[Rfam]
RNA sequence: AAUAUUCUAAUAGCAUUUACUCGUAUAAUAGCAGGGAUAUGGCCUGCAAGUUUCUACCGGUUUACCUUAAAUAAACCGACUAUGAGUGGCGAUGAAGUAACU
Numbered sequence: 001a002a003u004a005u006u007c008u009a010a011u012a013g014c015a016u017u018u019a020c021u022c023g024u025a026u027a028a029u030a031g032c033a034g035g036g037a038u039a040u041g042g043c044c045u046g047c048a049a050g051u052u053u054c055u056a057c058c059g060g061u062u063u064a065c066c067u068u069a070a071a072u073a074a075a076c077c078g079a080c081u082a083u084g085a086g087u088g089g090c091g092a093u094g095a096a097g098u099a100a101c102u
Stems, first nucleotide, its partner, number of pairs: 018088008029049001031047005058078007
A member of the RNA family "Purine riboswitch aptamer" from Psychrobacillus insolitus, 102 nucleotides long. Lineage of the source: Bacteria > Bacillati > Bacillota > Bacilli > Psychrobacillus. It scores 87 bits against the family's covariance model. The base pairs follow the family's consensus structure, which is taken from published work.